[Rfam]
RNA sequence: UCUUCCUUAAGCAACGUCAGCCCUACCUGCUCUGACGUCCUUGCGACCCCUUAGUCGCGCCAGUGUGAAUAAGAUCUUCAAAAACUUA
Number, nucleotide and partner (000 for none) at each position: 001u000002c000003u000004u000005c000006c000007u000008u000009a000010a000011g000012c000013a000014a000015c000016g000017u000018c000019a000020g000021c000022c000023c000024u000025a000026c000027c000028u000029g000030c000031u000032c000033u000034g000035a000036c067037g066038u000039c000040c063041u062042u059043g058044c057045g056046a055047c054048c000049c000050c000051u000052u000053a000054g047055u046056c045057g044058c043059g042060c000061c000062a041063g040064u000065g000066u037067g036068a000069a000070u000071a000072a000073g000074a000075u000076c000077u000078u000079c000080a000081a000082a000083a000084a000085c000086u000087u000088a000